[Rfam]
RNA sequence: AGCCUCAUUCUCCAUGAGAAUGGGGACUGCUGGUUGUGGUGUCUAGAAAUUCUUAAUGCAGCUAAACUGAGACAGAGAUCGUUCUUCUGUCUCAGUAAAUGUAUUGCAAUGGUGACGUGAUGAGACCUGUAAUUUUU
Numbered sequence: 001a002g003c004c005u006c007a008u009u010c011u012c013c014a015u016g017a018g019a020a021u022g023g024g025g026a027c028u029g030c031u032g033g034u035u036g037u038g039g040u041g042u043c044u045a046g047a048a049a050u051u052c053u054u055a056a057u058g059c060a061g062c063u064a065a066a067c068u069g070a071g072a073c074a075g076a077g078a079u080c081g082u083u084c085u086u087c088u089g090u091c092u093c094a095g096u097a098a099a100u101g102u103a104u105u106g107c108a109a110u111g112g113u114g115a116c117g118u119g120a121u122g123a124g125a126c127c128u129g130u131a132a133u134u135u136u137u
Stems, first nucleotide, its partner, number of pairs: 002062002006058003021045004026040002074130001076128002088114004
RNA: Small nucleolar RNA SNORA1
Organism: Gulo gulo